[Rfam]
RNA: Eukaryotic small subunit ribosomal RNA, nucleotides 601 to 1134
Organism: Heterosiphonia plumosa
RNA sequence: UGCAGUUAAAACGCUCGUAGUCGAACCUUGGUGGGAUGGCGUGGUGCAUUCGUAAGAUUGUUUGCUGCGCCUUGCACCUUUGUGGAUUGGCGGCAGCCUGGUUCUUUAUUGAGUUGGGCUGUUGCUGCCACCGUUUACUGUGAAUAAAUUAAAGUGUUCAAAGCAAGCGUUUGCCCUGAAUACAUUAGCAUGGAAUAAUAGAAAAGGACCUGUGUUUUCUUUUCUGUUGGUUUGUGAAAAUCGGGUAAUGAUUAAGAGGGACGGUCGGGGGUAUUUGUAUUCCGGCGUUAGAGGUGAAAUUCUUAGAUCGCCGGAAGACAAACAGCUGCGAAAGCGUCUACCAAGGACGUUUUCAUUGAUCAAGAACGAAAGUAAGGGGAUCGAAGACGAUCAGAUACCGUCGUAGUCCUUACUAUAAACGAUGAGGACUGGGGAUCGGGCGUGGCCGCUUAAGGUACGCUCGGCACCCUCCGCGAAAGCAAAGUGUUUGCUUUCUGGGGGGAGUAUGGUCGCAAGGCUGAAACUUAAAGGAAU
Numbered sequence: 001u002g003c004a005g006u007u008a009a010a011a012c013g014c015u016c017g018u019a020g021u022c023g024a025a026c027c028u029u030g031g032u033g034g035g036a037u038g039g040c041g042u043g044g045u046g047c048a049u050u051c052g053u054a055a056g057a058u059u060g061u062u063u064g065c066u067g068c069g070c071c072u073u074g075c076a077c078c079u080u081u082g083u084g085g086a087u088u089g090g091c092g093g094c095a096g097c098c099u100g101g102u103u104c105u106u107u108a109u110u111g112a113g114u115u116g117g118g119c120u121g122u123u124g125c126u127g128c129c130a131c132c133g134u135u136u137a138c139u140g141u142g143a144a145u146a147a148a149u150u151a152a153a154g155u156g157u158u159c160a161a162a163g164c165a166a167g168c169g170u171u172u173g174c175c176c177u178g179a180a181u182a183c184a185u186u187a188g189c190a191u192g193g194a195a196u197a198a199u200a201g202a203a204a205a206g207g208a209c210c211u212g213u214g215u216u217u218u219c220u221u222u223u224c225u226g227u228u229g230g231u232u233u234g235u236g237a238a239a240a241u242c243g244g245g246u247a248a249u250g251a252u253u254a255a256g257a258g259g260g261a262c263g264g265u266c267g268g269g270g271g272u273a274u275u276u277g278u279a280u281u282c283c284g285g286c287g288u289u290a291g292a293g294g295u296g297a298a299a300u301u302c303u304u305a306g307a308u309c310g311c312c313g314g315a316a317g318a319c320a321a322a323c324a325g326c327u328g329c330g331a332a333a334g335c336g337u338c339u340a341c342c343a344a345g346g347a348c349g350u351u352u353u354c355a356u357u358g359a360u361c362a363a364g365a366a367c368g369a370a371a372g373u374a375a376g377g378g379g380a381u382c383g384a385a386g387a388c389g390a391u392c393a394g395a396u397a398c399c400g401u402c403g404u405a406g407u408c409c410u411u412a413c414u415a416u417a418a419a420c421g422a423u424g425a426g427g428a429c430u431g432g433g434g435a436u437c438g439g440g441c442g443u444g445g446c447c448g449c450u451u452a453a454g455g456u457a458c459g460c461u462c463g464g465c466a467c468c469c470u471c472c473g474c475g476a477a478a479g480c481a482a483a484g485u486g487u488u489u490g491c492u493u494u495c496u497g498g499g500g501g502g503a504g505u506a507u508g509g510u511c512g513c514a515a516g517g518c519u520g521a522a523a524c525u526u527a528a529a530g531g532a533a534u
Base pairs, nucleotide, nucleotide: 003497004496005495011494013367015365016364020360021359022358258354259353260352261351262349263348265346266345270342271341272340273339276320277319280316281315282314283313284312285311286310287309291302292301293300328335329334372413373412374411375410376409377408382406386402387401388400389399424493425492426491428485429484431469432468433467436464437463438462439461440460441459442458443457445456446455447454473480474479499526500525501524508519509518510517511516